Shown here is a 99-nucleotide sequence from Vulpes vulpes, a member of the family "mir-1184 microRNA precursor family". Rfam 15.1 lists 204 matches to the family in 120 species. Rfam links the family to the GO terms miRNA-mediated post-transcriptional gene silencing and RISC complex. Taxonomically the source falls in Vulpes (Eukaryota, Eumetazoa, Euteleostomi, Canidae).
RNA sequence: CUUGUAGAACAAGGUGAAGGAGAUGAUUCUGCUCAGCACUCAGCAGUGGCCAUAUCUCCACUUGUUGUGACUUGACAGCUUCUGUGUCCUUUUCGUGGG
Dot-bracket structure: ....(((((.((((....((((.(..((.(((...(((.......((((........)))).))).)))....))..).))))....))))))).))..